This 145-nucleotide sequence from Triticum turgidum belongs to the Rfam family "Small nucleolar RNA F1/F2/snoR5a". Taxonomically the source falls in Triticum turgidum (Eukaryota, Tracheophyta, Poales, Triticinae). By type it is an H/ACA-box small nucleolar RNA. Rfam links the family to the GO terms nucleolus and RNA processing. About the family: This family contains F1, F2 and snoR5a sequences, all of which are members of the the H/ACA class of snoRNA that guide the sites of modification of uridines to pseudouridines. The match comes from Rfam's covariance-model search (65 bits).
[Rfam]
RNA sequence: GGAUGCCGUGAGGUAUCUGAUGCUUGGUCUUUUUCAUGGCCUUGUUUCUCGUUAGAUUGGCAGACAGCAAGAAGGAAACGGGUUUUUGCGACACUGGCUGCUCUAGUACCAGGAGCUUUCUGUUACUAUACCCCCGUUUACAUCU
Numbered sequence: 001g002g003a004u005g006c007c008g009u010g011a012g013g014u015a016u017c018u019g020a021u022g023c024u025u026g027g028u029c030u031u032u033u034u035c036a037u038g039g040c041c042u043u044g045u046u047u048c049u050c051g052u053u054a055g056a057u058u059g060g061c062a063g064a065c066a067g068c069a070a071g072a073a074g075g076a077a078a079c080g081g082g083u084u085u086u087u088g089c090g091a092c093a094c095u096g097g098c099u100g101c102u103c104u105a106g107u108a109c110c111a112g113g114a115g116c117u118u119u120c121u122g123u124u125a126c127u128a129u130a131c132c133c134c135c136g137u138u139u140a141c142a143u144c145u
Stems, first nucleotide, its partner, number of pairs: 004062005009056001019048002022045002026041004077138005093123002096120002100116005